[Rfam]
RNA sequence: AGGACCUAAUUCUCUUGGGUCUUGCAUCGAGUCCCAAUUCUCUUAGGUCUAGCGGACCUAAAGAUAAUGGGUCUAGCGUCAAGACCCAAGGCUAAUGGGUCCU
Numbered sequence: 001a002g003g004a005c006c007u008a009a010u011u012c013u014c015u016u017g018g019g020u021c022u023u024g025c026a027u028c029g030a031g032u033c034c035c036a037a038u039u040c041u042c043u044u045a046g047g048u049c050u051a052g053c054g055g056a057c058c059u060a061a062a063g064a065u066a067a068u069g070g071g072u073c074u075a076g077c078g079u080c081a082a083g084a085c086c087c088a089a090g091g092c093u094a095a096u097g098g099g100u101c102c103u
Base pairs, nucleotide, nucleotide: 001103002102003101004100005099006098007097008096013091014090015089016088017087018086019085020084021083022082023081024080030074031073033071034070035069036068043061044060045059046058047057048056049055050054

Annotation
Shown here is a 103-nucleotide sequence from Populus alba, a member of the family "MIR6450 microRNA precursor family". The base pairs follow the family's consensus structure, which was predicted with RNAalifold. A search with the family's covariance model found it, with a score of 71 bits. The organism belongs to Populus, within Eukaryota.